[Rfam]
RNA sequence: AUCGGUAUCGCUGAUGAGCGCUGGAAUGCAUCUGCCGCUCGCGAAACCGCAAUUACCGUCUGCCUUUGACCACGGAUGUACUGGCACUGGACGAGAGGUGAUUGGUGAGGAAGGUCGGUGCGUUUACGCCCCGGCCUUUUUUGUU
Numbered sequence: 001a002u003c004g005g006u007a008u009c010g011c012u013g014a015u016g017a018g019c020g021c022u023g024g025a026a027u028g029c030a031u032c033u034g035c036c037g038c039u040c041g042c043g044a045a046a047c048c049g050c051a052a053u054u055a056c057c058g059u060c061u062g063c064c065u066u067u068g069a070c071c072a073c074g075g076a077u078g079u080a081c082u083g084g085c086a087c088u089g090g091a092c093g094a095g096a097g098g099u100g101a102u103u104g105g106u107g108a109g110g111a112a113g114g115u116c117g118g119u120g121c122g123u124u125u126a127c128g129c130c131c132c133g134g135c136c137u138u139u140u141u142u143g144u145u
Stems, first nucleotide, its partner, number of pairs: 003049004008044002016040005052102006063090002067086002070084003105144014120129003